[Rfam]
RNA: Actino-pnp RNA
Organism: Pseudoclavibacter endophyticus
RNA sequence: GCUGGUCUUCGGUGGUGGCGUUCCGGGCGUCGACGGCGAGACGUGCGGGAUGCUUCGACUGACGAUCAGC
Numbered sequence: 001g002c003u004g005g006u007c008u009u010c011g012g013u014g015g016u017g018g019c020g021u022u023c024c025g026g027g028c029g030u031c032g033a034c035g036g037c038g039a040g041a042c043g044u045g046c047g048g049g050a051u052g053c054u055u056c057g058a059c060u061g062a063c064g065a066u067c068a069g070c
Base pairs, nucleotide, nucleotide: 001070002069003068004067005066006065007064009062010061011060012059013058017054018053019052020051021050022049023048024047025046027044028043029042030041031040